[Rfam]
RNA: Singlet oxygen resistance RNA X
Organism: Roseivivax jejudonensis
RNA sequence: AGCCCGUGGGCGCGUGCGGGGUAUCGCGCGCCGAACCUCCCUGUUGGACCUGGCCGGGCUUUGUGCCCGGCCUUUUUU
Dot-bracket structure: .........(((((((........)))))))....................((((((((.....))))))))......
Numbered sequence: 001a002g003c004c005c006g007u008g009g010g011c012g013c014g015u016g017c018g019g020g021g022u023a024u025c026g027c028g029c030g031c032c033g034a035a036c037c038u039c040c041c042u043g044u045u046g047g048a049c050c051u052g053g054c055c056g057g058g059c060u061u062u063g064u065g066c067c068c069g070g071c072c073u074u075u076u077u078u
Stems, first nucleotide, its partner, number of pairs: 010031007052072008